[Rfam]
RNA sequence: GACUCCAUGGCCAAGUUGGUUAAGGCGUGCGACUGUUAAUCGCAAGAUCGUGAGUUCAACCCUCACUGGGGUCG
Numbered sequence: 001g002a003c004u005c006c007a008u009g010g011c012c013a014a015g016u017u018g019g020u021u022a023a024g025g026c027g028u029g030c031g032a033c034u035g036u037u038a039a040u041c042g043c044a045a046g047a048u049c050g051u052g053a054g055u056u057c058a059a060c061c062c063u064c065a066c067u068g069g070g071g072u073c074g
Stems, first nucleotide, its partner, number of pairs: 001073007010026003028044005050066005

This 74-nucleotide RNA from Saccharomyces cerevisiae belongs to the Rfam family "tRNA". The source organism's lineage runs through Eukaryota, Dikarya, Ascomycota, Saccharomycetes and Saccharomyces. The family's consensus secondary structure is taken from published work. It is annotated as a transfer RNA.